A member of the RNA family "Pseudomonas sRNA P26" from Litorilituus lipolyticus, 58 nucleotides long.
Rfam classes the family as a non-coding RNA gene.
The source organism's lineage runs through Bacteria, Gammaproteobacteria, Alteromonadales, Colwelliaceae and Litorilituus.
For this family Rfam cites "Identification of 17 Pseudomonas aeruginosa sRNAs and prediction of sRNA-encoding genes in 10 diverse pathogens using the bioinformatic tool sRNAPredict2" (Livny et al., Nucleic Acids Res, 2006).
The family's consensus secondary structure was predicted with RNAalifold.
RNA sequence: UUCUGACAGAUUAUUUGCCUGAAAAGGCAAUGGCUGGUGAUUUAAUCGUCACCGGCCU
Number, nucleotide and partner (000 for none) at each position: 001u000002u000003c000004u000005g000006a000007c000008a000009g000010a000011u000012u000013a000014u000015u000016u029017g028018c027019c026020u000021g000022a000023a000024a000025a000026g019027g018028c017029a016030a000031u000032g057033g056034c055035u054036g053037g052038u051039g050040a049041u048042u000043u000044a000045a000046u000047c000048g041049u040050c039051a038052c037053c036054g035055g034056c033057c032058u000